This 182-nucleotide RNA from Sporosarcina sp. HYO08 belongs to the Rfam family "Lysine riboswitch aptamer". NCBI's taxonomy places the organism under Bacteria, Bacillati, Bacillota, Bacilli, Sporosarcina.
[Rfam]
RNA sequence: CGAUUGGGUAGAGGCUGCAUUGCUUAAGAGUAGCAUACGUGAGAUUGACAUCGUUGACUGUAUGUAAAAGGAAGUAGUGCCGAAACUUAAUAGAAAAGUCAAAGUCUAUUAGGUUGGGGUUAUUCCGAAUAGGGAUAACACUGUCACACGUUUGUAAUGACGUUUGAUGAGCUACAAGUCGU
Numbered sequence: 001c002g003a004u005u006g007g008g009u010a011g012a013g014g015c016u017g018c019a020u021u022g023c024u025u026a027a028g029a030g031u032a033g034c035a036u037a038c039g040u041g042a043g044a045u046u047g048a049c050a051u052c053g054u055u056g057a058c059u060g061u062a063u064g065u066a067a068a069a070g071g072a073a074g075u076a077g078u079g080c081c082g083a084a085a086c087u088u089a090a091u092a093g094a095a096a097a098g099u100c101a102a103a104g105u106c107u108a109u110u111a112g113g114u115u116g117g118g119g120u121u122a123u124u125c126c127g128a129a130u131a132g133g134g135a136u137a138a139c140a141c142u143g144u145c146a147c148a149c150g151u152u153u154g155u156a157a158u159g160a161c162g163u164u165u166g167a168u169g170a171g172c173u174a175c176a177a178g179u180c181g182u
Base pairs, nucleotide, nucleotide: 008175009174010173011172017080018079019078020077021076022075023074024073025072033065034064035063036062037061038060039059084115085114086113087112088111089110090109091108092107093106094105116142117141119139120138121137122136123135124134125133126132144167145166146165148163149162150161